[Rfam]
RNA sequence: CGGUGAUGCCUCCUAACCGUUAUCAAUGGAAGCACUCGAUCAUGCUGUGGGUCAUAUGGACCUUAGACGCAAGUCGUCAAAAGUGUGGUGCGAGGCAGGGUUAGAUGCCCU
Numbered sequence: 001c002g003g004u005g006a007u008g009c010c011u012c013c014u015a016a017c018c019g020u021u022a023u024c025a026a027u028g029g030a031a032g033c034a035c036u037c038g039a040u041c042a043u044g045c046u047g048u049g050g051g052u053c054a055u056a057u058g059g060a061c062c063u064u065a066g067a068c069g070c071a072a073g074u075c076g077u078c079a080a081a082a083g084u085g086u087g088g089u090g091c092g093a094g095g096c097a098g099g100g101u102u103a104g105a106u107g108c109c110c111u
Base pairs, nucleotide, nucleotide: 001019002018003017004016007034008033009032011030012029013028035094036093037092038091039089040088041087042086043085044084045083046082049063050062051061052060053059066078067077068076069075097111098110099109100108101107

This 111-nucleotide RNA sequence from Paenibacillus pectinilyticus belongs to the Rfam family "epsC RNA". The family has 30 seed sequences and 450 matches in Rfam 15.1. NCBI's taxonomy places the organism under Bacteria, Bacilli, Caryophanales, Paenibacillaceae, Paenibacillus.